RNA: chrB-b RNA
RNA sequence: CGGGGACUUUAGGCAGACUCCCCGCUCCCAAGACGCGCGAGUGUCCAAGCUCUGC
Numbered sequence: 001c002g003g004g005g006a007c008u009u010u011a012g013g014c015a016g017a018c019u020c021c022c023c024g025c026u027c028c029c030a031a032g033a034c035g036c037g038c039g040a041g042u043g044u045c046c047a048a049g050c051u052c053u054g055c
Stems, first nucleotide, its partner, number of pairs: 001024006013055005032045005